[Rfam]
The family of this 226-nucleotide sequence is "RT-2 RNA".
RNA sequence: ACAGAACGGACACAGUAGCUCCCACGGGAGUGAACCCAGUAUCUUUUACGGAAGGAGAGCCUGUUCCCGGCUAUAUGCCAAAAUAUGCCCUCCGAUGGGAUCAGCCGGACGCUGCUUGCAUGGCGGAUAAUGUGCGGUACUCCGUUUCAUGGCUGAAGCCCUACGCAGUUAGAACCCGCACCCGACAAUCAUACUGUACGGAGGGCAAUCCUUUUCUAUGACCAGC
Numbered sequence: 001a002c003a004g005a006a007c008g009g010a011c012a013c014a015g016u017a018g019c020u021c022c023c024a025c026g027g028g029a030g031u032g033a034a035c036c037c038a039g040u041a042u043c044u045u046u047u048a049c050g051g052a053a054g055g056a057g058a059g060c061c062u063g064u065u066c067c068c069g070g071c072u073a074u075a076u077g078c079c080a081a082a083a084u085a086u087g088c089c090c091u092c093c094g095a096u097g098g099g100a101u102c103a104g105c106c107g108g109a110c111g112c113u114g115c116u117u118g119c120a121u122g123g124c125g126g127a128u129a130a131u132g133u134g135c136g137g138u139a140c141u142c143c144g145u146u147u148c149a150u151g152g153c154u155g156a157a158g159c160c161c162u163a164c165g166c167a168g169u170u171a172g173a174a175c176c177c178g179c180a181c182c183c184g185a186c187a188a189u190c191a192u193a194c195u196g197u198a199c200g201g202a203g204g205g206c207a208a209u210c211c212u213u214u215u216c217u218a219u220g221a222c223c224a225g226c
Stems, first nucleotide, its partner, number of pairs: 004043002019030004069079003087206008096198001097161003101158001102155005111119002122146006165197005172183001